RNA sequence: UCUGAGCCCUCGGCCCCGACUCCCAGCCGCCCUCCCUGACGCACUUCCCCGGUGUCAGGUCGGAGCGGAUGGGGAUCAGGACCGAGGGACAGGGUCCA
Numbered sequence: 001u002c003u004g005a006g007c008c009c010u011c012g013g014c015c016c017c018g019a020c021u022c023c024c025a026g027c028c029g030c031c032c033u034c035c036c037u038g039a040c041g042c043a044c045u046u047c048c049c050c051g052g053u054g055u056c057a058g059g060u061c062g063g064a065g066c067g068g069a070u071g072g073g074g075a076u077c078a079g080g081a082c083c084g085a086g087g088g089a090c091a092g093g094g095u096c097c098a
Stems, first nucleotide, its partner, number of pairs: 010085004015080002018077002021074005027068004031063002035059008
Dot-bracket structure: .........((((.((.((.(((((.((((((..((((((((.........))))))))..)).)))).))))).)).)).)))).............
The record is a 98-nucleotide RNA from Microbacterium sp. Root180, which matches "mraW RNA" in Rfam. A search with the family's covariance model found it, with a score of 64 bits. Pairs were carried over by alignment from the consensus structure, which is taken from published work.